Rfam assigns this 70-nucleotide RNA from Tenacibaculum sp. MAR_2009_124 to the family "DUF805 RNA". The family has 46 seed sequences and 281 matches in Rfam 15.1. The source organism's lineage runs through Bacteria, Pseudomonadati, Flavobacteriia, Flavobacteriaceae and Tenacibaculum. Rfam classes the family as a cis-regulatory element.
RNA sequence: AAAUAGUAGAGUUCAGAAACUACAUUAAAAACGAGGCGUAUCCCGAAAAGCCUUAUGAGUAGGGAUUAAA
Numbered sequence: 001a002a003a004u005a006g007u008a009g010a011g012u013u014c015a016g017a018a019a020c021u022a023c024a025u026u027a028a029a030a031a032c033g034a035g036g037c038g039u040a041u042c043c044c045g046a047a048a049a050g051c052c053u054u055a056u057g058a059g060u061a062g063g064g065a066u067u068a069a070a
Base pairs, nucleotide, nucleotide: 006023007022008021009020035052036051037050042064043063